[Rfam]
RNA: rpsL sRNA
RNA sequence: CUGAUAAUAAGUUUGAAUCAGAAAGUUGUUUAAAGACAAAUCGCCGCUAAAAAUAAACACGAUUUUUCUCUUCAAAUGAAG
Numbered sequence: 001c002u003g004a005u006a007a008u009a010a011g012u013u014u015g016a017a018u019c020a021g022a023a024a025g026u027u028g029u030u031u032a033a034a035g036a037c038a039a040a041u042c043g044c045c046g047c048u049a050a051a052a053a054u055a056a057a058c059a060c061g062a063u064u065u066u067u068c069u070c071u072u073c074a075a076a077u078g079a080a081g
Stems, first nucleotide, its partner, number of pairs: 012076006020069006026039005043063001045061002